[Rfam]
Shown here is a 94-nucleotide RNA from Albula glossodonta, a member of the family "Small nucleolar SNORD12/SNORD106". By type it is a C/D-box small nucleolar RNA. The base pairs follow the family's consensus structure, which was predicted with RNAalifold.

RNA sequence: GUUGGCGUCAGCUGAUGACUAAUCUUUUUUCCCCAGCAGAUCGACUCUGUUGACUUUUCUGACUUUUAAAGCCAAACCUGUCUGAUGCGCUAGA
Numbered sequence: 001g002u003u004g005g006c007g008u009c010a011g012c013u014g015a016u017g018a019c020u021a022a023u024c025u026u027u028u029u030u031c032c033c034c035a036g037c038a039g040a041u042c043g044a045c046u047c048u049g050u051u052g053a054c055u056u057u058u059c060u061g062a063c064u065u066u067u068a069a070a071g072c073c074a075a076a077c078c079u080g081u082c083u084g085a086u087g088c089g090c091u092a093g094a
Base pairs, nucleotide, nucleotide: 002093003092004091005090006089007088009087010086
For this family Rfam cites "RNomics: an experimental approach that identifies 201 candidates for novel, small, non-messenger RNAs in mouse" (Huttenhofer et al., EMBO J, 2001).